[Rfam]
This 86-nucleotide RNA from Pelodiscus sinensis belongs to the Rfam family "Small nucleolar RNA SNORD100". It scores 60 bits against the family's covariance model. Its family is annotated with nucleolus and RNA processing in the Gene Ontology. The family's RNA type in Rfam is C/D-box small nucleolar RNA.
RNA sequence: GCUGCACGAUGAUGAUUGUUUGGCUCCCUCUACUGAUAUAUGUGAGGAAAGCAGCCACAAACGUCACCAAUCUUUCUGAGUGUAGC
Numbered sequence: 001g002c003u004g005c006a007c008g009a010u011g012a013u014g015a016u017u018g019u020u021u022g023g024c025u026c027c028c029u030c031u032a033c034u035g036a037u038a039u040a041u042g043u044g045a046g047g048a049a050a051g052c053a054g055c056c057a058c059a060a061a062c063g064u065c066a067c068c069a070a071u072c073u074u075u076c077u078g079a080g081u082g083u084a085g086c
Base pairs, nucleotide, nucleotide: 001086002085003084004083005082006081